THF (Tetrahydrofolate) riboswitch aptamer: a 116-nucleotide RNA from Johnsonella ignava. Rfam links the family to the GO term tetrahydrofolate metabolic process.
[Rfam]
RNA sequence: AGCAGAGCAGAAAGCUAAGCGAAAAGUGCCUUUUGACGGGGAGUUGUCGAAAGGACGAAAGCACCGGGUAGCGACUUUUUACUAUGGUGUGCGAUUUGGUUUUCUAUCCCGCUGCU
Numbered sequence: 001a002g003c004a005g006a007g008c009a010g011a012a013a014g015c016u017a018a019g020c021g022a023a024a025a026g027u028g029c030c031u032u033u034u035g036a037c038g039g040g041g042a043g044u045u046g047u048c049g050a051a052a053g054g055a056c057g058a059a060a061g062c063a064c065c066g067g068g069u070a071g072c073g074a075c076u077u078u079u080u081a082c083u084a085u086g087g088u089g090u091g092c093g094a095u096u097u098g099g100u101u102u103u104c105u106a107u108c109c110c111g112c113u114g115c116u
Stems, first nucleotide, its partner, number of pairs: 001116005010104010020093002026056002029054008039110004061090006
It scores 56 bits against the family's covariance model. Tetrahydrofolate (THF) riboswitch was first reported for Ames et al. as an RNA motif in 5' untranslated (5'-UTR)regions of folate transport and biosynthesis genes in Firmicutes genomes.